Overview
This 72-nucleotide RNA sequence from Chlamydomonas reinhardtii belongs to the Rfam family "tRNA". Rfam classes the family as a transfer RNA.
[Rfam]
RNA sequence: AGACACGUAGCUUAGUGGUAAAGCACUGGUCUCAUAAGCCAGCUAUCGCAAGUUCGAAUCUCGCCGUGUCUA
Dot-bracket structure: (((((((..((((.......)))).(((((.......))))).....((.((.......)).))))))))).